[Rfam]
RNA sequence: GGAAUCCCUGCCUGGUAAGAUGUGAGCCACAUCACCAGUAGCGAGUCUUGGGUGCAUUGGGGUGACCCUAUGUGCUAAGCGUAGACAGCAAGGCAGUAGGCCUGAAAGUGAUUGAGCCCCGAAAAUGAAAAUCAGCUGGGAAGGUCGACGGUUUCGAUCUGUCGGAAGACAACACCGCCUGAAUCGUUAUGGCCAGUAUCAAGCGGCUUCCCCGGGGUCGAAGAGCC
Number, nucleotide and partner (000 for none) at each position: 001g000002g000003a000004a000005u000006c000007c000008c000009u000010g000011c000012c038013u037014g036015g035016u000017a000018a000019g033020a032021u000022g030023u029024g000025a000026g193027c192028c000029a023030c022031a000032u020033c019034a000035c015036c014037a013038g012039u000040a000041g089042c088043g000044a000045g086046u085047c084048u083049u081050g080051g076052g075053u074054g073055c072056a071057u070058u000059g068060g067061g066062g000063u000064g000065a000066c061067c060068c059069u000070a057071u056072g055073u054074g053075c052076u051077a000078a000079g000080c050081g049082u000083a048084g047085a046086c045087a000088g042089c041090a000091a000092g000093g000094c000095a000096g000097u000098a000099g000100g000101c000102c000103u000104g000105a000106a000107a000108g000109u000110g000111a000112u000113u221114g219115a000116g218117c217118c216119c215120c214121g213122a000123a000124a000125a000126u000127g000128a000129a000130a000131a000132u000133c000134a000135g000136c000137u000138g212139g211140g210141a209142a208143g207144g170145u169146c168147g000148a000149c164150g163151g162152u161153u000154u000155c000156g000157a000158u000159c000160u000161g152162u151163c150164g149165g000166a000167a000168g146169a145170c144171a000172a000173c000174a000175c206176c205177g204178c203179c000180u201181g200182a199183a000184u000185c196186g000187u000188u000189a000190u000191g000192g027193c026194c000195a000196g185197u000198a000199u182200c181201a180202a000203g178204c177205g176206g175207c143208u142209u141210c140211c139212c138213c121214g120215g119216g118217g117218u116219c114220g000221a113222a000223g000224a000225g000226c000227c000
The family of this 227-nucleotide RNA sequence from Paenalicyclobacillus mengziensis is "Group II catalytic intron D1-D4-6".
It scores 160 bits against the family's covariance model.
Rfam links the family to the GO term Group II intron splicing.